[Rfam]
RNA: ZMP/ZTP riboswitch aptamer (pfl RNA motif)
Organism: Saezia sanguinis
RNA sequence: UGCGGAUUGCGCAACUGGCGAUAGAUUGAUGUGCUCAGACAAAACGCAUUAAACUGCAGCAUAUCGGUCGAGGUGGUGAACCAUCGGGAAGCGCAUUGUUUUAUGCCGUUCGCCUGGGCAGCCUGU
Numbered sequence: 001u002g003c004g005g006a007u008u009g010c011g012c013a014a015c016u017g018g019c020g021a022u023a024g025a026u027u028g029a030u031g032u033g034c035u036c037a038g039a040c041a042a043a044a045c046g047c048a049u050u051a052a053a054c055u056g057c058a059g060c061a062u063a064u065c066g067g068u069c070g071a072g073g074u075g076g077u078g079a080a081c082c083a084u085c086g087g088g089a090a091g092c093g094c095a096u097u098g099u100u101u102u103a104u105g106c107c108g109u110u111c112g113c114c115u116g117g118g119c120a121g122c123c124u125g126u
Base pairs, nucleotide, nucleotide: 004099006097008095009094010093011092012091015088016087017114018113019112020111021110073084074083075082076081104120105119106118107117